[Rfam]
RNA: COG2908 RNA
RNA sequence: AGCCGCCCUACCUUUCGGUGUAAGGUUUGUCGCACAGCGAUGGCU
Numbered sequence: 001a002g003c004c005g006c007c008c009u010a011c012c013u014u015u016c017g018g019u020g021u022a023a024g025g026u027u028u029g030u031c032g033c034a035c036a037g038c039g040a041u042g043g044c045u
Base pairs, nucleotide, nucleotide: 001045002044003043004042006025007024011018012017030040031039032038033037